Rfam assigns this 96-nucleotide sequence from Varanus komodoensis to the family "Small nucleolar RNA SNORD21". On this family, see Renalier et al., FEBS Lett 1996: "SnoRNA U21 is also intron-encoded in Drosophila melanogaster but in a different host-gene as compared to warm-blooded vertebrates". The family's consensus secondary structure was predicted with PFOLD. A search with the family's covariance model found it, with a score of 92 bits. Rfam classes the family as a C/D-box small nucleolar RNA. NCBI's taxonomy places the organism under Eukaryota, Sauropsida, Anguimorpha, Varanidae, Varanus.
[Rfam]
RNA sequence: GCUGUGUGAUGAUAUCCCGUUGACUGAACAUUCUGUAGUUGGUCCUUGGCAUGUGUAUGAUGGAUUUCAUUGUUUCAAGACGGGACUGAUGGUGGC
Numbered sequence: 001g002c003u004g005u006g007u008g009a010u011g012a013u014a015u016c017c018c019g020u021u022g023a024c025u026g027a028a029c030a031u032u033c034u035g036u037a038g039u040u041g042g043u044c045c046u047u048g049g050c051a052u053g054u055g056u057a058u059g060a061u062g063g064a065u066u067u068c069a070u071u072g073u074u075u076c077a078a079g080a081c082g083g084g085a086c087u088g089a090u091g092g093u094g095g096c
Stems, first nucleotide, its partner, number of pairs: 001093004
Dot-bracket structure: ((((.....................................................................................))))...